This 65-nucleotide RNA sequence from Nomascus leucogenys belongs to the Rfam family "U7 small nuclear RNA". It scores 46 bits against the family's covariance model. The family has 49 seed sequences and 10,439 matches in Rfam 15.1. Taxonomically the source falls in Nomascus (Eukaryota, Tetrapoda, Amniota, Eutheria). About the family: Animal histone pre-mRNAs are spliced by a different mechanism than nuclear pre-mRNAs and self-splicing introns. This processing involves the U7 snRNP, which contains only one RNA species: U7. The 5' end of U7 RNA is thought to base-pair to a conserved spacer element downstream of the cleavage site in histone pre-mRNA. This family contains a number of annotated U7 pseudogenes.

RNA sequence: GAGUGUGACAGCUCUUUUAGAAUUUAUCUAACAGGGUUUCCAGUUUUCACUGUAAACCAUCCUUG
Numbered sequence: 001g002a003g004u005g006u007g008a009c010a011g012c013u014c015u016u017u018u019a020g021a022a023u024u025u026a027u028c029u030a031a032c033a034g035g036g037u038u039u040c041c042a043g044u045u046u047u048c049a050c051u052g053u054a055a056a057c058c059a060u061c062c063u064u065g
Base pairs, nucleotide, nucleotide: 034062035061036060037056038055039054041052042051043050044049